The record is a 111-nucleotide sequence from Oceanobacillus halophilus, which matches "SAM riboswitch aptamer (S box leader)" in Rfam.
[Rfam]
RNA sequence: AUCUUAUCUAGAGAGACCGAGGGAUAGGCCCUAUGACGUCCGGCAACCCCCUUCAUUAAUUGGGAAGGUGCCAAGUCCUACAGAAUGAGUAUACAUUCUGAAAGAUAAGCG
Numbered sequence: 001a002u003c004u005u006a007u008c009u010a011g012a013g014a015g016a017c018c019g020a021g022g023g024a025u026a027g028g029c030c031c032u033a034u035g036a037c038g039u040c041c042g043g044c045a046a047c048c049c050c051c052u053u054c055a056u057u058a059a060u061u062g063g064g065a066a067g068g069u070g071c072c073a074a075g076u077c078c079u080a081c082a083g084a085a086u087g088a089g090u091a092u093a094c095a096u097u098c099u100g101a102a103a104g105a106u107a108a109g110c111g
Stems, first nucleotide, its partner, number of pairs: 003109006013041001015040003021031003025080004042072004047068002049064003076103001081100006
Lineage of the source: Bacteria > Bacillota > Bacilli > Caryophanales > Oceanobacillus.